A member of the RNA family "Eukaryotic large subunit ribosomal RNA" from Cafeteria roenbergensis, 484 nucleotides of a longer RNA. A search with the family's covariance model found it, with a score of 3074 bits. The family's consensus secondary structure is taken from published work. NCBI's taxonomy places the organism under Eukaryota, Stramenopiles, Bigyra, Cafeteriaceae, Cafeteria.

RNA sequence: UAGAACAAUGUAGAUAAGGGAAGUCGGCAAAAUAGAUCCGUAACUUCGGGAAAAGGAUUGGCUCUGAGGGCUGAGCGUUCGGGACCCUGACGCGCGAGCCGUGUGCAUGCAAGGGUUGAGGGCCUUCGGGACUUCGCCUCUGCGGCCGCGGUUCGACGUCAGGGGUGCCUCUGGCUUUCCGGGCGCAGUGAACAGCCAACUCAGAACUGGAGCGGACAAGGGGAAUCCGACUGUUUAAUUAAAACAAAGCAUUGCGAUGGGGUGUGAACCUGCUGACGCAAUGUGAUUUCUGCCCAGUGCUCUGAAUGUCAAAGUGAAGAAAUUCAACCAAGCGCGGGUAAACGGCGGGAGUAACUAUGACUCUCUUAAGGUAGCCAAAUGCCUCGUCAUCUAAUUAGUGACGCGCAUGAAUGGAUUAACGAGAUUCCCACUGUCCCUAUCUACUAUCUAGCGAAGCCACAGCCAAGGGAGCGGGCUUGGAAGA
Numbered sequence: 001u002a003g004a005a006c007a008a009u010g011u012a013g014a015u016a017a018g019g020g021a022a023g024u025c026g027g028c029a030a031a032a033u034a035g036a037u038c039c040g041u042a043a044c045u046u047c048g049g050g051a052a053a054a055g056g057a058u059u060g061g062c063u064c065u066g067a068g069g070g071c072u073g074a075g076c077g078u079u080c081g082g083g084a085c086c087c088u089g090a091c092g093c094g095c096g097a098g099c100c101g102u103g104u105g106c107a108u109g110c111a112a113g114g115g116u117u118g119a120g121g122g123c124c125u126u127c128g129g130g131a132c133u134u135c136g137c138c139u140c141u142g143c144g145g146c147c148g149c150g151g152u153u154c155g156a157c158g159u160c161a162g163g164g165g166u167g168c169c170u171c172u173g174g175c176u177u178u179c180c181g182g183g184c185g186c187a188g189u190g191a192a193c194a195g196c197c198a199a200c201u202c203a204g205a206a207c208u209g210g211a212g213c214g215g216a217c218a219a220g221g222g223g224a225a226u227c228c229g230a231c232u233g234u235u236u237a238a239u240u241a242a243a244a245c246a247a248a249g250c251a252u253u254g255c256g257a258u259g260g261g262g263u264g265u266g267a268a269c270c271u272g273c274u275g276a277c278g279c280a281a282u283g284u285g286a287u288u289u290c291u292g293c294c295c296a297g298u299g300c301u302c303u304g305a306a307u308g309u310c311a312a313a314g315u316g317a318a319g320a321a322a323u324u325c326a327a328c329c330a331a332g333c334g335c336g337g338g339u340a341a342a343c344g345g346c347g348g349g350a351g352u353a354a355c356u357a358u359g360a361c362u363c364u365c366u367u368a369a370g371g372u373a374g375c376c377a378a379a380u381g382c383c384u385c386g387u388c389a390u391c392u393a394a395u396u397a398g399u400g401a402c403g404c405g406c407a408u409g410a411a412u413g414g415a416u417u418a419a420c421g422a423g424a425u426u427c428c429c430a431c432u433g434u435c436c437c438u439a440u441c442u443a444c445u446a447u448c449u450a451g452c453g454a455a456g457c458c459a460c461a462g463c464c465a466a467g468g469g470a471g472c473g474g475g476c477u478u479g480g481a482a483g484a
Stems, first nucleotide, its partner, number of pairs: 001450004010444007018436003035059005044049001060208002063205006069197005075186009085164002088161004097153004103149003108144004113140003117136005123130002209213001221429007228421002232246003249284008260271004288415003292346003297343002299339004304335001307334003315326004347365006366370001386402005463480005